[Rfam]
The record is a 77-nucleotide RNA sequence from Myotis myotis, which matches "Small nucleolar RNA SNORD69" in Rfam. Lineage of the source: Eukaryota > Vertebrata > Theria > Eutheria > Myotis. From the family's description: snoRNA HBII-210 belongs to the C/D family of snoRNAs. It is annotated as a C/D-box small nucleolar RNA. The literature on the family includes a 2001 paper in EMBO J by Huttenhofer et al., "RNomics: an experimental approach that identifies 201 candidates for novel, small, non-messenger RNAs in mouse".

RNA sequence: CAUGUGAAGCAAAUGAUGAUAAACUGGAUCUGACAGACUAUGCUGAGUUUGUUCAAUCCAACCCUGAGCUUCAUGUU
Numbered sequence: 001c002a003u004g005u006g007a008a009g010c011a012a013a014u015g016a017u018g019a020u021a022a023a024c025u026g027g028a029u030c031u032g033a034c035a036g037a038c039u040a041u042g043c044u045g046a047g048u049u050u051g052u053u054c055a056a057u058c059c060a061a062c063c064c065u066g067a068g069c070u071u072c073a074u075g076u077u
Stems, first nucleotide, its partner, number of pairs: 002076009